[Rfam]
RNA sequence: AAAAAGGGCUUCUGUCGUGAGUGGCACACGUAGGGCAACUCGAUUGCUCUUCGUGCGGAAUCGACAUCAAGAGAUUUCGGAAGCAUAAUUUUUUGACAUUCGGGCAGCUGGUGAUCGUUGGUCCCGGCGCCCUU
Numbered sequence: 001a002a003a004a005a006g007g008g009c010u011u012c013u014g015u016c017g018u019g020a021g022u023g024g025c026a027c028a029c030g031u032a033g034g035g036c037a038a039c040u041c042g043a044u045u046g047c048u049c050u051u052c053g054u055g056c057g058g059a060a061u062c063g064a065c066a067u068c069a070a071g072a073g074a075u076u077u078c079g080g081a082a083g084c085a086u087a088a089u090u091u092u093u094u095g096a097c098a099u100u101c102g103g104g105c106a107g108c109u110g111g112u113g114a115u116c117g118u119u120g121g122u123c124c125c126g127g128c129g130c131c132c133u134u
Stems, first nucleotide, its partner, number of pairs: 008084005013026005027055004032050007056079007102132004107128005113123004
Rfam assigns this 134-nucleotide RNA sequence from Macaca mulatta to the family "U11 spliceosomal RNA". The family's consensus secondary structure is taken from published work. The family is grouped with related families in Rfam's "U1 clan".